The record is a 216-nucleotide RNA sequence from Actinoplanes regularis, which matches "Actinobacteria sRNA Ms_IGR-5" in Rfam.
The match comes from Rfam's covariance-model search (100 bits).
Pairs were carried over by alignment from the consensus structure.
Lineage of the source: Bacteria > Bacillati > Actinomycetes > Micromonosporales > Actinoplanes.
Rfam classes the family as a small RNA.
[Rfam]
RNA sequence: ACACGUGAGAGGAGGUGGUCCGAAGUUGUAUAGCAACGGGACUCGUGAGGUGGCUGUCCGCUAGCCGCUGUCCUUGACAGCUUUGUUCAGCGUCGAGACCGUGUGGCAGCGGCCCGGCGAGUAUCAGGCAGCCACCCGACCCCUGGGGAUCCGGCCUAGUCCGACCGGACCACUUUCGCGUUCGCGCGGCGUGGAAGUCCCCGGGGGUCGCUUCAU
Numbered sequence: 001a002c003a004c005g006u007g008a009g010a011g012g013a014g015g016u017g018g019u020c021c022g023a024a025g026u027u028g029u030a031u032a033g034c035a036a037c038g039g040g041a042c043u044c045g046u047g048a049g050g051u052g053g054c055u056g057u058c059c060g061c062u063a064g065c066c067g068c069u070g071u072c073c074u075u076g077a078c079a080g081c082u083u084u085g086u087u088c089a090g091c092g093u094c095g096a097g098a099c100c101g102u103g104u105g106g107c108a109g110c111g112g113c114c115c116g117g118c119g120a121g122u123a124u125c126a127g128g129c130a131g132c133c134a135c136c137c138g139a140c141c142c143c144u145g146g147g148g149a150u151c152c153g154g155c156c157u158a159g160u161c162c163g164a165c166c167g168g169a170c171c172a173c174u175u176u177c178g179c180g181u182u183c184g185c186g187c188g189g190c191g192u193g194g195a196a197g198u199c200c201c202c203g204g205g206g207g208u209c210g211c212u213u214c215a216u
Stems, first nucleotide, its partner, number of pairs: 014058006059119004064114001065112001067110004072105001137210013151168004156163001